[Rfam]
RNA: SAM riboswitch aptamer (S box leader)
RNA sequence: CACUCAUCCAGAGGGGCAGAGGGACACGGCCCGAUGAAGCCCCGGCAACCGCUGACGCGCGUCCACGUGCGCCAGCAGGUGCCAAUUCCGUCCCGCGCGGCUCGACGGCCCGGCGCGGGGAAGAUGAGGA
Number, nucleotide and partner (000 for none) at each position: 001c000002a000003c128004u127005c126006a125007u124008c123009c000010a000011g000012a000013g043014g042015g041016g040017c039018a000019g000020a000021g032022g031023g030024a000025c000026a091027c090028g089029g088030c023031c022032c021033g000034a000035u000036g000037a000038a000039g017040c016041c015042c014043c013044g083045g082046c081047a080048a000049c079050c078051g076052c075053u074054g073055a000056c000057g000058c000059g000060c000061g000062u000063c000064c000065a000066c000067g000068u000069g000070c000071g000072c000073c054074a053075g052076c051077a000078g050079g049080u047081g046082c045083c044084a000085a000086u000087u122088c029089c028090g027091u026092c119093c118094c117095g116096c115097g114098c000099g000100g000101c000102u000103c000104g000105a000106c000107g000108g000109c000110c000111c000112g000113g000114c097115g096116c095117g094118g093119g092120g000121a000122a087123g008124a007125u006126g005127a004128g003129g000130a000